[Rfam]
RNA sequence: AGUAGAAUUCAGGGGCUAUAGCAGAAGCAUUCACAUUGCAGCUCCUGUCAGAUUCCUGCAAGCCUGUGAAUUAAUGCU
Numbered sequence: 001a002g003u004a005g006a007a008u009u010c011a012g013g014g015g016c017u018a019u020a021g022c023a024g025a026a027g028c029a030u031u032c033a034c035a036u037u038g039c040a041g042c043u044c045c046u047g048u049c050a051g052a053u054u055c056c057u058g059c060a061a062g063c064c065u066g067u068g069a070a071u072u073a074a075u076g077c078u
Stems, first nucleotide, its partner, number of pairs: 012045006020078004025072002027039003049066003053062002